A member of the RNA family "Nitrogen stress-induced RNA 1" from Synechococcales cyanobacterium M55_K2018_004, 62 nucleotides long. On this family, see Ionescu et al., J Mol Biol 2010: "Heterocyst-specific transcription of NsiR1, a non-coding RNA encoded in a tandem array of direct repeats in cyanobacteria". The organism belongs to Synechococcales, within Bacteria. Rfam 15.1 lists 962 matches to the family in 163 species.
[Rfam]
RNA sequence: UGGUAGAUGCACCCUGAUUCAAAAUCCCUUAGCAUGGAACUCCCUUGCUGAGGGAUUUUUUU
Numbered sequence: 001u002g003g004u005a006g007a008u009g010c011a012c013c014c015u016g017a018u019u020c021a022a023a024a025u026c027c028c029u030u031a032g033c034a035u036g037g038a039a040c041u042c043c044c045u046u047g048c049u050g051a052g053g054g055a056u057u058u059u060u061u062u
Base pairs, nucleotide, nucleotide: 002013003012004011026054027053028052029051030050031049032048033047034046036044